[Rfam]
RNA sequence: AAUAACGCGCUUUAAAUCCACACACGUUUUCAUAACAUGCAGUAGGGUCCCCGUAGGGGUUCUGUAUGGAAAGCGUGGAGGCGUAAC
Numbered sequence: 001a002a003u004a005a006c007g008c009g010c011u012u013u014a015a016a017u018c019c020a021c022a023c024a025c026g027u028u029u030u031c032a033u034a035a036c037a038u039g040c041a042g043u044a045g046g047g048u049c050c051c052c053g054u055a056g057g058g059g060u061u062c063u064g065u066a067u068g069g070a071a072a073g074c075g076u077g078g079a080g081g082c083g084u085a086a087c
Stems, first nucleotide, its partner, number of pairs: 023077008036068007044060001049059004

Annotation: A member of the RNA family "t44 RNA" from Legionella adelaidensis, 87 nucleotides long. The base pairs follow the family's consensus structure, which was predicted with LocARNA. From the family's description: This family consists of a number of bacterial RNA genes of between 135 and 170 bases in length. The t44 gene has been identified in several species of enteric bacteria but homologs have also been identified in Pseudomonas and Coxiella species. The t44 gene is found between the map and rpsB genes in all species in the full alignment apart from Shigella flexneri. The function of this RNA is unknown.